A member of the RNA family "Small nucleolar RNA SNORD113/SNORD114 family" from Carlito syrichta, 63 nucleotides long. By type it is a C/D-box small nucleolar RNA. A reference for the family is Cavaille et al. (2002), "Identification of tandemly-repeated C/D snoRNA genes at the imprinted human 14q32 domain reminiscent of those at the Prader-Willi/Angelman syndrome region", Hum Mol Genet. The match comes from Rfam's covariance-model search (55 bits). The imprinted human domain at 14q32 contains two clusters of tandemly repeated small nucleolar RNAs named 14q(I) and 14q(II) snoRNAs. These two clusters are named SNORD113 and SNORD114 respectively in the HGNC approved gene symbol nomenclature.
[Rfam]
RNA sequence: UGGAUCAAUGAUGUCAACUAGUGGCAGAUGAGUCUCAUAUGUGUCUAGAACUCCGAGGUCCAA
Numbered sequence: 001u002g003g004a005u006c007a008a009u010g011a012u013g014u015c016a017a018c019u020a021g022u023g024g025c026a027g028a029u030g031a032g033u034c035u036c037a038u039a040u041g042u043g044u045c046u047a048g049a050a051c052u053c054c055g056a057g058g059u060c061c062a063a
Stems, first nucleotide, its partner, number of pairs: 002061005